The family of this 106-nucleotide RNA sequence from Ananas comosus is "MIR397 microRNA precursor family". Gene Ontology terms of the family: RISC complex and miRNA-mediated post-transcriptional gene silencing. The match comes from Rfam's covariance-model search (69 bits). The source organism's lineage runs through Eukaryota, Streptophytina, Euphyllophyta, Liliopsida and Ananas.
RNA sequence: AUCAAACGCAUCAUUGAGUGCAGCGUUGAUGACCGUCACGAACUCGAUCGAAUUUACACCCGUAGUUCGAGAGGUUUCAUCGGCGCUGCACUCAAUCAUGUCUUUG
Numbered sequence: 001a002u003c004a005a006a007c008g009c010a011u012c013a014u015u016g017a018g019u020g021c022a023g024c025g026u027u028g029a030u031g032a033c034c035g036u037c038a039c040g041a042a043c044u045c046g047a048u049c050g051a052a053u054u055u056a057c058a059c060c061c062g063u064a065g066u067u068c069g070a071g072a073g074g075u076u077u078c079a080u081c082g083g084c085g086c087u088g089c090a091c092u093c094a095a096u097c098a099u100g101u102c103u104u105u106g
Base pairs, nucleotide, nucleotide: 006103008101009100010099011098013096014095015094016093017092018091019090020089021088022087023086024085025084026083027082028081030079031078032077